[Rfam]
RNA sequence: CGUGUGGUGUUUGGUGCGGUAUAGGGGUUCCUUGCUGUGACUGGAUGGCGACACGGCCCAAUAUGAGGU
Numbered sequence: 001c002g003u004g005u006g007g008u009g010u011u012u013g014g015u016g017c018g019g020u021a022u023a024g025g026g027g028u029u030c031c032u033u034g035c036u037g038u039g040a041c042u043g044g045a046u047g048g049c050g051a052c053a054c055g056g057c058c059c060a061a062u063a064u065g066a067g068g069u
Stems, first nucleotide, its partner, number of pairs: 001055005007049002011044005
The record is a 69-nucleotide RNA sequence from Alginatibacterium sediminis, which matches "L31-Gammaproteobacteria ribosomal protein leader" in Rfam.
The base pairs follow the family's consensus structure, which is taken from published work.
The match comes from Rfam's covariance-model search (47 bits).
A reference for the family is Eckert and Weinberg (2020), "Discovery of 20 novel ribosomal leader candidates in bacteria and archaea", BMC Microbiol.